Shown here is a 49-nucleotide RNA sequence, a member of the family "chrB-b RNA". Rfam's curators put it in the seed alignment. The family's RNA type in Rfam is cis-regulatory element.

RNA sequence: CGGGGGCAACGCAGACUCCCCGCGAGACGACACAUCGUCCAAGCUCUGC
Numbered sequence: 001c002g003g004g005g006g007c008a009a010c011g012c013a014g015a016c017u018c019c020c021c022g023c024g025a026g027a028c029g030a031c032a033c034a035u036c037g038u039c040c041a042a043g044c045u046c047u048g049c
Stems, first nucleotide, its partner, number of pairs: 001022006011049005026039005